A member of the RNA family "7SK RNA" from Neophocaena asiaeorientalis, 331 nucleotides long. 7SK was discovered as an abundant small nuclear RNA in the mid-70s but a possible function has only recently been suggested. Two independent studies have found that 7SK RNA binds the CDK9/cyclin T complex (known as elongation factor P-TEFb). P-TEFb activates transcription by phosphorylating the C-terminal domain of RNA polymerase II. This process is negatively regulated by the 7SK RNP. The secondary structure of 7SK RNA shown here was proposed by Wasserman and Steitz on the basis of chemical modification and enzymatic cleavage experiments. A search with the family's covariance model found it, with a score of 333 bits. Rfam classes the family as a non-coding RNA gene. Taxonomically the source falls in Neophocaena asiaeorientalis (Eukaryota, Metazoa, Bilateria, Odontoceti).

[Rfam]
RNA sequence: AGAUGUGAGGGCGAUCUGGCUGCGACAUCUGUCACCCCAUUGAUCGCCAGGGUUGAUUUGACCGAUCGGGCUGGCUAGGCAGGAGUCCCCUUCCUCCCUCACCGUUCCAGGUAUGUCCCUCCCGAAGCUGCGCGCUUGGUCGGAGAGGACGACCUUCCCCGAUAGAGGAGGACCGUUCUUCGGUCAGGGGUAUACAAGUAGCUGCGCUCCCCUGCUAGAACCUGCAGACAAGCUGUCAAGGUCCAUUUGUAGGAGAACGUAGGGUAGUCGAGCUUCCAAGACUCCAGACACAUCCAAAUGAGGUGCUGCACGUGGCAGUCUGCCUUUCUAA
Numbered sequence: 001a002g003a004u005g006u007g008a009g010g011g012c013g014a015u016c017u018g019g020c021u022g023c024g025a026c027a028u029c030u031g032u033c034a035c036c037c038c039a040u041u042g043a044u045c046g047c048c049a050g051g052g053u054u055g056a057u058u059u060g061a062c063c064g065a066u067c068g069g070g071c072u073g074g075c076u077a078g079g080c081a082g083g084a085g086u087c088c089c090c091u092u093c094c095u096c097c098c099u100c101a102c103c104g105u106u107c108c109a110g111g112u113a114u115g116u117c118c119c120u121c122c123c124g125a126a127g128c129u130g131c132g133c134g135c136u137u138g139g140u141c142g143g144a145g146a147g148g149a150c151g152a153c154c155u156u157c158c159c160c161g162a163u164a165g166a167g168g169a170g171g172a173c174c175g176u177u178c179u180u181c182g183g184u185c186a187g188g189g190g191u192a193u194a195c196a197a198g199u200a201g202c203u204g205c206g207c208u209c210c211c212c213u214g215c216u217a218g219a220a221c222c223u224g225c226a227g228a229c230a231a232g233c234u235g236u237c238a239a240g241g242u243c244c245a246u247u248u249g250u251a252g253g254a255g256a257a258c259g260u261a262g263g264g265u266a267g268u269c270g271a272g273c274u275u276c277c278a279a280g281a282c283u284c285c286a287g288a289c290a291c292a293u294c295c296a297a298a299u300g301a302g303g304u305g306c307u308g309c310a311c312g313u314g315g316c317a318g319u320c321u322g323c324c325u326u327u328c329u330a331a
Stems, first nucleotide, its partner, number of pairs: 002107002005102007013093002018090002024087003028083006035074002037070002042067004046062001048060001116171002118168004122139004127135002140162003147158003201273003207267002210264006222255002225252001228250005298329001300326005305319005